[Rfam]
This 146-nucleotide RNA sequence from Solibacillus silvestris belongs to the Rfam family "Ribosomal protein L10 leader".
The source organism's lineage runs through Bacteria, Bacilli, Caryophanales, Solibacillus and Solibacillus silvestris.
It scores 80 bits against the family's covariance model.
Rfam classes the family as a cis-regulatory leader.
Rfam describes the family as follows. This family is a putative r-protein leader autoregulatory structure found in B. subtilis and other low-GC Gram-positive bacteria. It is located in the 5' untranslated regions of mRNAs encoding ribosomal proteins L10 and L12 (rplJ-rplL). A Rho-independent transcription terminator structure that is probably involved in regulation is included at the 3' end.

RNA sequence: GUGAAUCAUCCAUUUGUACCGUAGACAGUAGGGGUGCCAUACGCACUUAAUGAUCCUACCGAGGACAUAGGAGUUCGGAUUCUUUUUAAGAUGAUGUACUUUCAGCCUCUAUGUCUAUUUUGAUAUAGAGGCUUUUCUUUGUCGGU
Numbered sequence: 001g002u003g004a005a006u007c008a009u010c011c012a013u014u015u016g017u018a019c020c021g022u023a024g025a026c027a028g029u030a031g032g033g034g035u036g037c038c039a040u041a042c043g044c045a046c047u048u049a050a051u052g053a054u055c056c057u058a059c060c061g062a063g064g065a066c067a068u069a070g071g072a073g074u075u076c077g078g079a080u081u082c083u084u085u086u087u088a089a090g091a092u093g094a095u096g097u098a099c100u101u102u103c104a105g106c107c108u109c110u111a112u113g114u115c116u117a118u119u120u121u122g123a124u125a126u127a128g129a130g131g132c133u134u135u136u137c138u139u140u141g142u143c144g145g146u
Stems, first nucleotide, its partner, number of pairs: 028059006034046003106131010